[Rfam]
RNA sequence: CUGGUAUCAAUUUGUAAGUCGCUCGGGAUAAGAGCGUCUGCUAAAUGACUUAAA
Numbered sequence: 001c002u003g004g005u006a007u008c009a010a011u012u013u014g015u016a017a018g019u020c021g022c023u024c025g026g027g028a029u030a031a032g033a034g035c036g037u038c039u040g041c042u043a044a045a046u047g048a049c050u051u052a053a054a
Base pairs, nucleotide, nucleotide: 013043014041015040016039020036021035022034023033024032
Rfam assigns this 54-nucleotide RNA sequence from Salvelinus namaycush to the family "UnaL2 LINE 3' element".